Mammalian CPEB3 ribozyme: a 79-nucleotide RNA from Polypterus senegalus.
Rfam's curators write: The mammalian CPEB3 ribozyme is a self cleaving RNA located in the second intron of the CPEB3 gene which belongs to a family of genes regulating messenger RNA polyadenylation.
Pairs were carried over by alignment from the consensus structure, which is taken from published work.
The source organism's lineage runs through Eukaryota, Gnathostomata, Teleostomi, Polypteriformes and Polypterus.
RNA sequence: AUAGUAAAGUUUGGGGAUCACAGUAUGAGCGUUCUUGUCGUGACCGCUGUCAGAUUUUACCUAAAUCUGCAAUCCUACU
Numbered sequence: 001a002u003a004g005u006a007a008a009g010u011u012u013g014g015g016g017a018u019c020a021c022a023g024u025a026u027g028a029g030c031g032u033u034c035u036u037g038u039c040g041u042g043a044c045c046g047c048u049g050u051c052a053g054a055u056u057u058u059a060c061c062u063a064a065a066u067c068u069g070c071a072a073u074c075c076u077a078c079u
Base pairs, nucleotide, nucleotide: 013047015045016044018043019042022079023078024077025076027074028073029041030040031039051069052068053067054066055065056064057063
Dot-bracket structure: ............[.[[.[[..((((.(((((.......)))]]]].]...(((((((.....)))))))...)).))))